[Rfam]
RNA: Clostridiales-1 RNA
RNA sequence: UGAUGCAGGGUCAAAAGCCUGAACCCACGAUGUGCUUGCACAUAAGUGGGUUUAUGGCUUAGUGACCCGCCCGAUAUGAGCAUAAAAGUGGAGCGUAAGCUUCAUGAUACGCGGAUAUUGGGGUGAAUUGCAGGAACACGAAGUACGGAACAAUUCGUAUGGCAUCU
Numbered sequence: 001u002g003a004u005g006c007a008g009g010g011u012c013a014a015a016a017g018c019c020u021g022a023a024c025c026c027a028c029g030a031u032g033u034g035c036u037u038g039c040a041c042a043u044a045a046g047u048g049g050g051u052u053u054a055u056g057g058c059u060u061a062g063u064g065a066c067c068c069g070c071c072c073g074a075u076a077u078g079a080g081c082a083u084a085a086a087a088g089u090g091g092a093g094c095g096u097a098a099g100c101u102u103c104a105u106g107a108u109a110c111g112c113g114g115a116u117a118u119u120g121g122g123g124u125g126a127a128u129u130g131c132a133g134g135a136a137c138a139c140g141a142a143g144u145a146c147g148g149a150a151c152a153a154u155u156c157g158u159a160u161g162g163c164a165u166c167u
Stems, first nucleotide, its partner, number of pairs: 002166005009067004015060005020054009030043005070122008080112002083109001088105007125156006138144002